[Rfam]
Shown here is a 153-nucleotide sequence from bacterium 1XD8-76, a member of the family "FMN riboswitch aptamer (RFN element)". Rfam describes the family as follows. The RFN element is a highly conserved domain that is found frequently in the 5'-untranslated regions of prokaryotic mRNAs that encode for flavin mononucleotide (FMN) biosynthesis and transport proteins. This element is a metabolite-dependent riboswitch that directly binds FMN in the absence of proteins. In Bacillus subtilis, the riboswitch most likely controls gene expression by causing premature transcription termination within the 5' untranslated region of the ribDEAHT operon and precluding access to the ribosome-binding site of ypaA mRNA.The FMN riboswitch structure, reported in present an FMN-bound six-stem junction, adopts a butterfly-like scaffold, stapled together by opposingly directed but nearly identically folded peripheral domains. The family's consensus secondary structure is taken from published work.

RNA sequence: AAAGUUCUUCGGGGUUGGGUGCAAUUCCCUACCGGUAGUGAUACGCUUUCCGCAAAGAGACUGCGGAACGGCGGUGAGUCUACGACCCAUGCAAAUGGCUGAUUUGGUGAGAAUCCAAAACCGACAGUAAAGUCUGGAUGAAAGAAGAAACUG
Numbered sequence: 001a002a003a004g005u006u007c008u009u010c011g012g013g014g015u016u017g018g019g020u021g022c023a024a025u026u027c028c029c030u031a032c033c034g035g036u037a038g039u040g041a042u043a044c045g046c047u048u049u050c051c052g053c054a055a056a057g058a059g060a061c062u063g064c065g066g067a068a069c070g071g072c073g074g075u076g077a078g079u080c081u082a083c084g085a086c087c088c089a090u091g092c093a094a095a096u097g098g099c100u101g102a103u104u105u106g107g108u109g110a111g112a113a114u115c116c117a118a119a120a121c122c123g124a125c126a127g128u129a130a131a132g133u134c135u136g137g138a139u140g141a142a143a144g145a146a147g148a149a150a151c152u153g
Stems, first nucleotide, its partner, number of pairs: 005149006017029003031133002033123002035083004087098002103119005125136003